[Rfam]
RNA: Lysine riboswitch aptamer
Organism: Senegalia massiliensis
RNA sequence: AGGUGAGGUAGAGGCGCAAUAAUUAUAAGUAGCUAUAUGGAGAUCGGAAGUCUUUGAAGUAUAGUAAAAGGAAUUGUUGCCGAAGUUUUAGAUACCAAAAUCUAAUGCUGGGUCCAUAUUUAAUAGAUAUGGGACUGUCAUUAUUGCAUAUUAGCUCCAUGCGAUAAUGUUGUGCUAUCUCACAC
Numbered sequence: 001a002g003g004u005g006a007g008g009u010a011g012a013g014g015c016g017c018a019a020u021a022a023u024u025a026u027a028a029g030u031a032g033c034u035a036u037a038u039g040g041a042g043a044u045c046g047g048a049a050g051u052c053u054u055u056g057a058a059g060u061a062u063a064g065u066a067a068a069a070g071g072a073a074u075u076g077u078u079g080c081c082g083a084a085g086u087u088u089u090a091g092a093u094a095c096c097a098a099a100a101u102c103u104a105a106u107g108c109u110g111g112g113u114c115c116a117u118a119u120u121u122a123a124u125a126g127a128u129a130u131g132g133g134a135c136u137g138u139c140a141u142u143a144u145u146g147c148a149u150a151u152u153a154g155c156u157c158c159a160u161g162c163g164a165u166a167a168u169g170u171u172g173u174g175c176u177a178u179c180u181c182a183c184a185c
Stems, first nucleotide, its partner, number of pairs: 006180006016080009032065007084109003088105006110136002113133008139169011